A member of the RNA family "5' ureB small RNA" from Massilia violaceinigra, 287 nucleotides long. The source organism's lineage runs through Bacteria, Pseudomonadati, Pseudomonadota, Betaproteobacteria and Massilia. The family has 13 seed sequences and 4,812 matches in Rfam 15.1.
RNA sequence: CUUCUUCGAUCUGCUGCGGGCAGAUGAAGUGGAUGUGCGUGUCGACCCCGCCGGCGGUGACGAUCAUGCCUUCGCCGGCGAUGAUUUCGGUGGCGCCGCCGAUGGCCAUGGUCACUCCGGGCUGCACAUCCGGGUUGCCGGCCUUGCCGAUGGCGGCGAUCAGGCCGUUUUUCAGGCCGAUGUCGGCCUUGACGAUACCCCAGUGGUCGACAAUGACGGCGUUGGUGAUGACGGUAUCCAUCACGCCGGCGUGCAGCCGCUGCGACUGGCCCAUGCCGUCGCGGAUG
Numbered sequence: 001c002u003u004c005u006u007c008g009a010u011c012u013g014c015u016g017c018g019g020g021c022a023g024a025u026g027a028a029g030u031g032g033a034u035g036u037g038c039g040u041g042u043c044g045a046c047c048c049c050g051c052c053g054g055c056g057g058u059g060a061c062g063a064u065c066a067u068g069c070c071u072u073c074g075c076c077g078g079c080g081a082u083g084a085u086u087u088c089g090g091u092g093g094c095g096c097c098g099c100c101g102a103u104g105g106c107c108a109u110g111g112u113c114a115c116u117c118c119g120g121g122c123u124g125c126a127c128a129u130c131c132g133g134g135u136u137g138c139c140g141g142c143c144u145u146g147c148c149g150a151u152g153g154c155g156g157c158g159a160u161c162a163g164g165c166c167g168u169u170u171u172u173c174a175g176g177c178c179g180a181u182g183u184c185g186g187c188c189u190u191g192a193c194g195a196u197a198c199c200c201c202a203g204u205g206g207u208c209g210a211c212a213a214u215g216a217c218g219g220c221g222u223u224g225g226u227g228a229u230g231a232c233g234g235u236a237u238c239c240a241u242c243a244c245g246c247c248g249g250c251g252u253g254c255a256g257c258c259g260c261u262g263c264g265a266c267u268g269g270c271c272c273a274u275g276c277c278g279u280c281g282c283g284g285a286u287g
Stems, first nucleotide, its partner, number of pairs: 001287001003285001005283001007281003012158006018076002022072002030053003034050002037048001039046002057069003077148002081144001083142001085140001090138005095130001101125001104123004110117002164270004170265002173262003178256001186220003190216001200209001225252001230247001234244002
Dot-bracket structure: (.(.(.(((..((((((((..((......(((.((.(.((....)).))))))...(((.......))).))..))((..(.(.(....((((((.....(..((((..((....))..)))).)....)...))))).).).)..))....)))))).....((((..((.(((..(.......(((.(.........(........)......).)))....(....(...((.......))..)....)...)...))).)).))))........))).).).)
The match comes from Rfam's covariance-model search (142 bits).